Source information:
This 141-nucleotide sequence from Peribacillus psychrosaccharolyticus belongs to the Rfam family "c-di-AMP riboswitch aptamer (ydaO/yuaA leader)". Taxonomically the source falls in Peribacillus (Bacteria, Bacilli, Caryophanales, Bacillaceae).
RNA sequence: ACAAAAUAUCAGCCGAAUCUCAAUAAUUGAGAACAUAGGACCUAUUGUUUUGGGGUAAAUUCUGCAUUUUAGAAGGGAUGAUAUAUACUCUUUCGCCAUCCUAUGCGUCAGCUAACUUCGUCGGCUAAUGCGAAGGAGGUC
Numbered sequence: 001a002c003a004a005a006a007u008a009u010c011a012g013c014c015g016a017a018u019c020u021c022a023a024u025a026a027u028u029g030a031g032a033a034c035a036u037a038g039g040a041c042c043u044a045u046u047g048u049u050u051u052g053g054g055g056u057a058a059a060u061u062c063u064g065c066a067u068u069u070u071a072g073a074a075g076g077g078a079u080g081a082u083a084u085a086u087a088c089u090c091u092u093u094c095g096c097c098a099u100c101c102u103a104u105g106c107g108u109c110a111g112c113u114a115a116c117u118u119c120g121u122c123g124g125c126u127a128a129u130g131c132g133a134a135g136g137a138g139g140u141c
Base pairs, nucleotide, nucleotide: 011126012125013124014123018032019031020030033121034120037117038116043052044051053106055104061073062072063071064070076101077100078099079098